[Rfam]
The family of this 196-nucleotide RNA from Luteipulveratus mongoliensis is "c-di-AMP riboswitch aptamer (ydaO/yuaA leader)". This family represents a conserved RNA structure found upstream of the ydaO and yuaA genes in Bacillus subtilis and related genes in other bacteria. The match comes from Rfam's covariance-model search (63 bits).
RNA sequence: GUGCAGGCAUCGCCGAGUCCUGCCAGCUGGCACGGGAGCGCACAUCCGCCAGGCAGGAGCGGGGGAACCACACCGGGCGUCGUGAGACGUCCUUGGGGUGAAGCCAGACGGCGCGCUCACGGGGAUGCGCGUCAGAGGCCGGGUGAUCUCCCACCCGAACCCGACAGCUCACCUCGUAGGCGUCAGGAGAGGUUCA
Number, nucleotide and partner (000 for none) at each position: 001g000002u000003g000004c000005a000006g000007g000008c000009a000010u000011c182012g181013c180014c179015g000016a000017g000018u058019c057020c056021u055022g054023c053024c052025a000026g000027c000028u000029g000030g000031c000032a000033c000034g000035g000036g000037a000038g000039c000040g000041c000042a000043c000044a000045u000046c000047c000048g000049c000050c000051a000052g024053g023054c022055a021056g020057g019058a018059g177060c176061g175062g174063g173064g172065g000066a000067a000068c000069c095070a094071c000072a000073c000074c000075g000076g000077g000078c000079g000080u000081c000082g000083u000084g000085a000086g000087a000088c000089g000090u000091c000092c000093u000094u070095g069096g162097g161098g160099u000100g000101a000102a000103g000104c138105c137106a000107g000108a000109c000110g000111g000112c000113g000114c000115g000116c000117u000118c000119a000120c000121g000122g000123g000124g000125a000126u000127g000128c000129g000130c000131g000132u000133c000134a000135g000136a000137g105138g104139c000140c000141g156142g155143g154144u153145g000146a000147u000148c000149u000150c000151c000152c000153a144154c143155c142156c141157g000158a000159a000160c098161c097162c096163g000164a000165c000166a000167g000168c000169u000170c000171a000172c064173c063174u062175c061176g060177u059178a000179g014180g013181c012182g011183u000184c000185a000186g000187g000188a000189g000190a000191g000192g000193u000194u000195c000196a000